[Rfam]
RNA sequence: UGGAGAAGGGGAGCGCGUGCAAAGUGUAAGUGUUUCAUCAGGAUUUUGCACGUGCCCUGCUUCUCCAAC
Numbered sequence: 001u002g003g004a005g006a007a008g009g010g011g012a013g014c015g016c017g018u019g020c021a022a023a024g025u026g027u028a029a030g031u032g033u034u035u036c037a038u039c040a041g042g043a044u045u046u047u048g049c050a051c052g053u054g055c056c057c058u059g060c061u062u063c064u065c066c067a068a069c
Base pairs, nucleotide, nucleotide: 001067002066003065004064005063006062007061008060010058011057013055014054015053016052017051018050019049020048021047022046023045024044028035029034
Source information: MIR164 microRNA precursor family: a 69-nucleotide sequence from Salix dunnii. Rfam links the family to the GO terms miRNA-mediated post-transcriptional gene silencing and RISC complex.